[Rfam]
RNA sequence: CUGCCUCUUGCUUCAGCAGUGUCUGGACAGAACAG
Numbered sequence: 001c002u003g004c005c006u007c008u009u010g011c012u013u014c015a016g017c018a019g020u021g022u023c024u025g026g027a028c029a030g031a032a033c034a035g
Stems, first nucleotide, its partner, number of pairs: 001035003006031003010028001012027005017021001
Dot-bracket structure: (((..(((.(.((((((...).))))))))).)))